Shown here is a 201-nucleotide sequence from Buttiauxella agrestis, a member of the family "sroC RNA". Gene Ontology terms of the family: regulation of RNA stability and RNA binding. A reference for the family is Vogel et al. (2003), "RNomics in Escherichia coli detects new sRNA species and indicates parallel transcriptional output in bacteria", Nucleic Acids Res. About the family: This family consists of a number of bacterial sroC RNA genes of around 160 bases in length. sroC is found in several Enterobacterial species. It base-pairs with GcvB. This interaction triggers the degradation of GcvB by RNase E, alleviating the GcvB-mediated mRNA repression of other amino acid-related transport and metabolic genes.
[Rfam]
RNA sequence: ACUAACUAGAAUCAGGGGCCGGGAUGACCCAGCCCUCCCGAUUGACGAACUGAAGCUCGGACAGACUAUGCGUCGGAUGGCCGUUCCCCAUCCGGCGUGAAAGUACCCAAAAAUUUCAGGCAACGACCUGAAAUACGGGUACAAGCUUCUCAUCAAUCUUCGAGGGUAGCGUAACUCGCUACCCUCAAUUUUUUCUCGGAG
Dot-bracket structure: ...........((..((((.((......)).))))((.(((((((.((.........(.(.(((.......((((..(.(((....................................))).)))))))).....).)...........)).)))))...)).)).................................)).